[Rfam]
RNA sequence: AUCCAAGAUGAUUCCCUCUCCAAGAGGCCAACUGGUGCCCCUUUGAGGAAAGCAGUAACUUGGAAGAAAAUCUAGCAUGCCUCAGGUCUUUGGGGAAUGGGGAAUGCCUAUUUCCUUUGCCUUCCUUUGGUUACCUACUUGG
Numbered sequence: 001a002u003c004c005a006a007g008a009u010g011a012u013u014c015c016c017u018c019u020c021c022a023a024g025a026g027g028c029c030a031a032c033u034g035g036u037g038c039c040c041c042u043u044u045g046a047g048g049a050a051a052g053c054a055g056u057a058a059c060u061u062g063g064a065a066g067a068a069a070a071u072c073u074a075g076c077a078u079g080c081c082u083c084a085g086g087u088c089u090u091u092g093g094g095g096a097a098u099g100g101g102g103a104a105u106g107c108c109u110a111u112u113u114c115c116u117u118u119g120c121c122u123u124c125c126u127u128u129g130g131u132u133a134c135c136u137a138c139u140u141g142g
Stems, first nucleotide, its partner, number of pairs: 002064006009057002019049003022043003026039003075132001078130001085123001092115001094113003
RNA: Small nucleolar RNA SNORA67
Organism: Castor canadensis